RNA: NiCo (Nickel/Cobalt) riboswitch aptamer
RNA sequence: ACAGUACAAUCUGAUCAGGCGAUGAACUUUGUAAAAGUUCAUGGGGCUGGGCCUAAUUAGGCAGCAGGUGAAUACAACCUGUGGGACAGUA
Numbered sequence: 001a002c003a004g005u006a007c008a009a010u011c012u013g014a015u016c017a018g019g020c021g022a023u024g025a026a027c028u029u030u031g032u033a034a035a036a037g038u039u040c041a042u043g044g045g046g047c048u049g050g051g052c053c054u055a056a057u058u059a060g061g062c063a064g065c066a067g068g069u070g071a072a073u074a075c076a077a078c079c080u081g082u083g084g085g086a087c088a089g090u091a
Stems, first nucleotide, its partner, number of pairs: 011089003016085001018048003022042006051062004064082006